The record is a 410-nucleotide sequence from Streptomyces alkaliphilus, which matches "Bacterial RNase P class A" in Rfam.
Ribonuclease P (RNase P) is a ubiquitous endoribonuclease, found in archaea, bacteria and eukarya as well as chloroplasts and mitochondria.
Pairs were carried over by alignment from the consensus structure, which is taken from published work.
The organism belongs to Streptomyces, within Bacteria.
A search with the family's covariance model found it, with a score of 258 bits.
RNA sequence: CGAGUCGCGCGGGCGGUCGCGUCGACGCCCCACCGGGGCGUCGCCGAGGAACGUCCGGGCUCCACAGGGCAGGGUGGUGGCCAACGGCCACCCGGGGCGACCCGCGAGACAGUGCCACAGAAAACAGACCGCCGGGGCCGCUUCGGCGGCACCCGGUAAGGGUGAAACGGUGGUGUAAGAGACCACCAGCGCCCGGGGUGACCCGGGCGGCUCGGUAAACCUCACCCGGAGCAAGGCCGAGAGGGACCGCCGCGAGGCGGUCCUGCGCGGACGUUCGAGGGCUGCCCGCCCGAGUCCGCGGGUGGGCCGCUGGAGGCUGUCGGCAACGGCAGUCCUAGAUGGAUGACCGCCUCCCCCGGGGCCGCGAGGGCCCGGGGAGACAGAACCCGGCGUACAGCGCGACUCGUCUG
Numbered sequence: 001c002g003a004g005u006c007g008c009g010c011g012g013g014c015g016g017u018c019g020c021g022u023c024g025a026c027g028c029c030c031c032a033c034c035g036g037g038g039c040g041u042c043g044c045c046g047a048g049g050a051a052c053g054u055c056c057g058g059g060c061u062c063c064a065c066a067g068g069g070c071a072g073g074g075u076g077g078u079g080g081c082c083a084a085c086g087g088c089c090a091c092c093c094g095g096g097g098c099g100a101c102c103c104g105c106g107a108g109a110c111a112g113u114g115c116c117a118c119a120g121a122a123a124a125c126a127g128a129c130c131g132c133c134g135g136g137g138c139c140g141c142u143u144c145g146g147c148g149g150c151a152c153c154c155g156g157u158a159a160g161g162g163u164g165a166a167a168c169g170g171u172g173g174u175g176u177a178a179g180a181g182a183c184c185a186c187c188a189g190c191g192c193c194c195g196g197g198g199u200g201a202c203c204c205g206g207g208c209g210g211c212u213c214g215g216u217a218a219a220c221c222u223c224a225c226c227c228g229g230a231g232c233a234a235g236g237c238c239g240a241g242a243g244g245g246a247c248c249g250c251c252g253c254g255a256g257g258c259g260g261u262c263c264u265g266c267g268c269g270g271a272c273g274u275u276c277g278a279g280g281g282c283u284g285c286c287c288g289c290c291c292g293a294g295u296c297c298g299c300g301g302g303u304g305g306g307c308c309g310c311u312g313g314a315g316g317c318u319g320u321c322g323g324c325a326a327c328g329g330c331a332g333u334c335c336u337a338g339a340u341g342g343a344u345g346a347c348c349g350c351c352u353c354c355c356c357c358g359g360g361g362c363c364g365c366g367a368g369g370g371c372c373c374g375g376g377g378a379g380a381c382a383g384a385a386c387c388c389g390g391c392g393u394a395c396a397g398c399g400c401g402a403c404u405c406g407u408c409u410g
Stems, first nucleotide, its partner, number of pairs: 001406010011395001012351007020046002023043006051393003055390005060231004067287004072227005077091005092106001093104004107222002112220002114216003129161002131157006139149001169187006189211001190209008235308004267299006279291004315334008